Nitrogen stress-induced RNA 1: a 54-nucleotide RNA sequence from Thermocoleostomius sinensis.
Pairs were carried over by alignment from the consensus structure.
The literature on the family includes a 2010 paper in J Mol Biol by Ionescu et al., "Heterocyst-specific transcription of NsiR1, a non-coding RNA encoded in a tandem array of direct repeats in cyanobacteria".
Lineage of the source: Bacteria > Cyanobacteriota > Oculatellales > Oculatellaceae > Thermocoleostomius sinensis.

Nucleotides: 054
Stems, first nucleotide, its partner, number of pairs: 002013003024046010
Number, partner (000 for none) and nucleotide at each position: 001000u002013g003012g004011u005000a006000g007000a008000u009000g010000c011004a012003c013002c014000c015000u016000g017000a018000u019000u020000c021000c022000c023000a024046c025045c026044u027043c028042c029041u030040g031039g032038c033037a034000a035000a036000u037033u038032g039031c040030c041029g042028g043027g044026a045025g046024g047000u048000u049000u050000u051000u052000g053000u054000u